Plastid-rpl16 group II-D1 intron: a 43-nucleotide RNA sequence from Olea europaea. The family's consensus secondary structure was predicted with LocARNA. The source organism's lineage runs through Eukaryota, Streptophyta, eudicotyledons, Pentapetalae and Olea europaea. Rfam describes the family as follows. Plastid-rpl16 is a non-coding RNA (ncRNA) recognised in plastids. It was recognised in and intronic region of a ribosome rpl16 gene.
Nucleotides: 043
Base pairs, nucleotide, nucleotide: 003037004036006034007033008032010030011029012028013027
Number, partner (000 for none) and nucleotide at each position: 001000g002000c003037u004036u005000g006034g007033a008032g009000c010030c011029a012028a013027u014000a015000a016000a017000g018000a019000c020000u021000a022000a023000g024000a025000a026000g027013a028012u029011u030010g031000a032008c033007u034006c035000a036004g037003g038000a039000a040000c041000a042000a043000a